The family of this 109-nucleotide RNA from Apium graveolens is "Small nucleolar RNA Z107/R87".
On this family, see Chen et al., Nucleic Acids Res 2003: "The high diversity of snoRNAs in plants: identification and comparative study of 120 snoRNA genes from Oryza sativa".
NCBI's taxonomy places the organism under Eukaryota, Embryophyta, Mesangiospermae, Apiales, Apium.

RNA sequence: GAUCGUGAGGAUGACUACAUAAAUUCAAGCUCAACAGACCGGAUUGCAGAGUUUCUUGUUCUUAUGAGAAGUUUUAUGCGUGUCGAAAACCCCGCUGAACUGAGCGAUU
Dot-bracket structure: ((((((.................................................................................................))))))